[Rfam]
RNA sequence: GCUAAACACUCUGGAGAGACCGGUUCAAUCCGGCGCCGAAGGGGCACGAAGCGAUCCGCUUCCAAACUCUCAGGCAAAAGGACAGAGGGGCGCCC
Dot-bracket structure: ......(.(((((......((((......)))).(((((..(((...((((.......))))....))))).))).......))))).)......